[Rfam]
The family of this 285-nucleotide part of an RNA from Entomophaga aulicae is "Eukaryotic large subunit ribosomal RNA". Rfam's curators put it in the seed alignment. Lineage of the source: Eukaryota > Opisthokonta > Entomophthoromycetes > Entomophthorales > Entomophaga.
RNA sequence: CGCUAAGAACUGUCUGGAAUUCAGAUAUUUAAUAGCUUGCUAUUGAAUAUUUGGGUGGCUAUAGUCCUGUUUCGAACUUCAGGAAUCUUGGGAUAGAAAUUGUAGGCUUCGGUUUACCUUUUCUUGAACUUGAUUUCUAAGAUUUGGGGCAGGAUAUAAAUUCAGUUGGGCAAUCCAUGUGAAACUUUAUUCAAUAGACUUGUCUAGAGAGUAUUAGAAAGCAUGUACUGUUCAACAUCAAAAUUUAUAGUCAAGAGGUUCUAAGCGUCCCGUCUUGAAACACGG
Numbered sequence: 001c002g003c004u005a006a007g008a009a010c011u012g013u014c015u016g017g018a019a020u021u022c023a024g025a026u027a028u029u030u031a032a033u034a035g036c037u038u039g040c041u042a043u044u045g046a047a048u049a050u051u052u053g054g055g056u057g058g059c060u061a062u063a064g065u066c067c068u069g070u071u072u073c074g075a076a077c078u079u080c081a082g083g084a085a086u087c088u089u090g091g092g093a094u095a096g097a098a099a100u101u102g103u104a105g106g107c108u109u110c111g112g113u114u115u116a117c118c119u120u121u122u123c124u125u126g127a128a129c130u131u132g133a134u135u136u137c138u139a140a141g142a143u144u145u146g147g148g149g150c151a152g153g154a155u156a157u158a159a160a161u162u163c164a165g166u167u168g169g170g171c172a173a174u175c176c177a178u179g180u181g182a183a184a185c186u187u188u189a190u191u192c193a194a195u196a197g198a199c200u201u202g203u204c205u206a207g208a209g210a211g212u213a214u215u216a217g218a219a220a221g222c223a224u225g226u227a228c229u230g231u232u233c234a235a236c237a238u239c240a241a242a243a244u245u246u247a248u249a250g251u252c253a254a255g256a257g258g259u260u261c262u263a264a265g266c267g268u269c270c271c272g273u274c275u276u277g278a279a280a281c282a283c284g285g
Stems, first nucleotide, its partner, number of pairs: 001267004006262006014132001017131002020128004270285004